[Rfam]
RNA sequence: CCUCCGCGCUGAGUUAGUGAUCGGCCGGAGGCCAUUUACCUUAUUUUUGGAGAUAUGACUAUGUCACUAAGCGCAGAAGCUAAAGCACAGAUCCUGGCUGAUUUCGGUCGUGGCGAG
Numbered sequence: 001c002c003u004c005c006g007c008g009c010u011g012a013g014u015u016a017g018u019g020a021u022c023g024g025c026c027g028g029a030g031g032c033c034a035u036u037u038a039c040c041u042u043a044u045u046u047u048u049g050g051a052g053a054u055a056u057g058a059c060u061a062u063g064u065c066a067c068u069a070a071g072c073g074c075a076g077a078a079g080c081u082a083a084a085g086c087a088c089a090g091a092u093c094c095u096g097g098c099u100g101a102u103u104u105c106g107g108u109c110g111u112g113g114c115g116a117g
Stems, first nucleotide, its partner, number of pairs: 008025005046071005052065001

Ribosomal S15 leader: a 117-nucleotide RNA sequence from Ferrimonas balearica. It scores 89 bits against the family's covariance model. The family is grouped with related families in Rfam's "Ribosomal Protein S15 Leader clan". Pairs were carried over by alignment from the consensus structure, which is taken from published work. The source organism's lineage runs through Bacteria, Pseudomonadati, Gammaproteobacteria, Ferrimonas and Ferrimonas balearica. The E. coli Ribosomal S15 gene 5' UTR can form two alternative structures. One that is a series of three hairpins, The other includes a pseudoknot.